A member of the RNA family "TPP riboswitch aptamer (THI element)", 170 nucleotides long.
[Rfam]
RNA sequence: AAUCGGCACUACGGGUGCUCAACUAUUAAUGGAUUACCAUGUAGAUUUUCUUUGUCAAUAUAAAUUGACGAAUAUUUUCUUCUGGUAUGAAGUUGACUGUGGGGCUGAGAUAGCACCGUUAUAACCUGAUCAGGGUAAUGCCUGCGUAGGGAAGCUGCCACUUCAUCAAA
Numbered sequence: 001a002a003u004c005g006g007c008a009c010u011a012c013g014g015g016u017g018c019u020c021a022a023c024u025a026u027u028a029a030u031g032g033a034u035u036a037c038c039a040u041g042u043a044g045a046u047u048u049u050c051u052u053u054g055u056c057a058a059u060a061u062a063a064a065u066u067g068a069c070g071a072a073u074a075u076u077u078u079c080u081u082c083u084g085g086u087a088u089g090a091a092g093u094u095g096a097c098u099g100u101g102g103g104g105c106u107g108a109g110a111u112a113g114c115a116c117c118g119u120u121a122u123a124a125c126c127u128g129a130u131c132a133g134g135g136u137a138a139u140g141c142c143u144g145c146g147u148a149g150g151g152a153a154g155c156u157g158c159c160a161c162u163u164c165a166u167c168a169a170a
Base pairs, nucleotide, nucleotide: 006158007157008156010154011119012118013117014116016113017105018104019103020102125150126149127148128147131144132143133142134141